[Rfam]
RNA: T-box leader
RNA sequence: UAAAUUGCGAUAAUGAAGAAAUAGUAAAAAGUGGAACCUUUACAGAGAGGAAACAUAGCUGAGAGUUUCUAAGGAGAAGUUUUUGAACCUGUCUUCUAGCUUUAAGAACAGUAAAAAGUUCUUACGUUUGGGAGCGUUACAUCCUAGAAAGAGAGCCUUAGGGCUAAUUAGAGUGGUACCGCGGAAAGUUAACCUUCCGUCUCUAUA
Numbered sequence: 001u002a003a004a005u006u007g008c009g010a011u012a013a014u015g016a017a018g019a020a021a022u023a024g025u026a027a028a029a030a031g032u033g034g035a036a037c038c039u040u041u042a043c044a045g046a047g048a049g050g051a052a053a054c055a056u057a058g059c060u061g062a063g064a065g066u067u068u069c070u071a072a073g074g075a076g077a078a079g080u081u082u083u084u085g086a087a088c089c090u091g092u093c094u095u096c097u098a099g100c101u102u103u104a105a106g107a108a109c110a111g112u113a114a115a116a117a118g119u120u121c122u123u124a125c126g127u128u129u130g131g132g133a134g135c136g137u138u139a140c141a142u143c144c145u146a147g148a149a150a151g152a153g154a155g156c157c158u159u160a161g162g163g164c165u166a167a168u169u170a171g172a173g174u175g176g177u178a179c180c181g182c183g184g185a186a187a188g189u190u191a192a193c194c195u196u197c198c199g200u201c202u203c204u205a206u207a
Stems, first nucleotide, its partner, number of pairs: 007100002016095004027084006038073003049070006103124007125136003154165004170204004181200005